This 250-nucleotide part of an RNA from Desulfurispirillum indicum belongs to the Rfam family "Bacterial large subunit ribosomal RNA". The sequence is in the family's curated seed alignment. NCBI's taxonomy places the organism under Bacteria, Pseudomonadati, Chrysiogenia, Chrysiogenaceae, Desulfurispirillum indicum.
[Rfam]
RNA sequence: GGAUAUUUGAGAGGAUUUGUCCCUAGUACGAGAGGACCGGGAUGAACGAACCUCUUGUGCACCGGUUGUUUCGCCAGAAGCACCGCCGGGUAGCUAUGUUCGGAAUGGAUAACCGCUGAAAGCAUCUAAGCGGGAAGCCAGCCUCAAGAUAAGAUAUCCCCAUGAGAGUCCAGGAAGACGACCUGGUUGAUAGGCUGGAUGUGUAAUCACCGUAAGGUGUUCAGCAGACCAGUACUAAUUCUCCAUUGUU
Numbered sequence: 001g002g003a004u005a006u007u008u009g010a011g012a013g014g015a016u017u018u019g020u021c022c023c024u025a026g027u028a029c030g031a032g033a034g035g036a037c038c039g040g041g042a043u044g045a046a047c048g049a050a051c052c053u054c055u056u057g058u059g060c061a062c063c064g065g066u067u068g069u070u071u072c073g074c075c076a077g078a079a080g081c082a083c084c085g086c087c088g089g090g091u092a093g094c095u096a097u098g099u100u101c102g103g104a105a106u107g108g109a110u111a112a113c114c115g116c117u118g119a120a121a122g123c124a125u126c127u128a129a130g131c132g133g134g135a136a137g138c139c140a141g142c143c144u145c146a147a148g149a150u151a152a153g154a155u156a157u158c159c160c161c162a163u164g165a166g167a168g169u170c171c172a173g174g175a176a177g178a179c180g181a182c183c184u185g186g187u188u189g190a191u192a193g194g195c196u197g198g199a200u201g202u203g204u205a206a207u208c209a210c211c212g213u214a215a216g217g218u219g220u221u222c223a224g225c226a227g228a229c230c231a232g233u234a235c236u237a238a239u240u241c242u243c244c245a246u247u248g249u250u
Base pairs, nucleotide, nucleotide: 001159002158003157004156005155006154007153008152011145012144013143014142017045018044019043020042021041022040023039047102048101049100050099051098055096057094062089063088064087065086066085067082068081069080070079071078072077106140107139108138113133114132115131116130117129163245166243167242168241170186171185172184173183174182191237192236193235194233195232196231197230198229200226201225208219209218210217211216